[Rfam]
RNA sequence: AAAAAUUGCUAGGGGUGCCUUUAGGCUGAGAAAUAGUAAUAUUAACCCUUGUACCUGAUCUGGAUAAUACCAGCGGAGGAAAGCAUAAAAUAUAUAAU
Numbered sequence: 001a002a003a004a005a006u007u008g009c010u011a012g013g014g015g016u017g018c019c020u021u022u023a024g025g026c027u028g029a030g031a032a033a034u035a036g037u038a039a040u041a042u043u044a045a046c047c048c049u050u051g052u053a054c055c056u057g058a059u060c061u062g063g064a065u066a067a068u069a070c071c072a073g074c075g076g077a078g079g080a081a082a083g084c085a086u087a088a089a090a091u092a093u094a095u096a097a098u
Stems, first nucleotide, its partner, number of pairs: 007085004011049004017026003033042003054079003060073004
RNA: TPP riboswitch aptamer (THI element)